[Rfam]
Notes
The family of this 82-nucleotide RNA sequence from Rhinolophus ferrumequinum is "mir-3660 microRNA precursor family". The match comes from Rfam's covariance-model search (78 bits).
RNA sequence: ACUGGACAGAAUUAAAAUGCUAUUCUGUCAUGGGGAUAGUUCAUAUGGGCACUGUCAGGAGAGCAUUUUAAUUUUGUCGUGU
Dot-bracket structure: ((..((((((.((((((((((.(((((.((..(..(((.....)))...)..)).))))).)))))))))).))))))..))
Numbered sequence: 001a002c003u004g005g006a007c008a009g010a011a012u013u014a015a016a017a018u019g020c021u022a023u024u025c026u027g028u029c030a031u032g033g034g035g036a037u038a039g040u041u042c043a044u045a046u047g048g049g050c051a052c053u054g055u056c057a058g059g060a061g062a063g064c065a066u067u068u069u070a071a072u073u074u075u076g077u078c079g080u081g082u
Stems, first nucleotide, its partner, number of pairs: 001082002005078006012071010023060005029054002033050001036046003
Gene Ontology terms of the family: miRNA-mediated post-transcriptional gene silencing and RISC complex. Pairs were carried over by alignment from the consensus structure, which was predicted with RNAalifold. Taxonomically the source falls in Rhinolophus (Eukaryota, Opisthokonta, Craniata, Tetrapoda).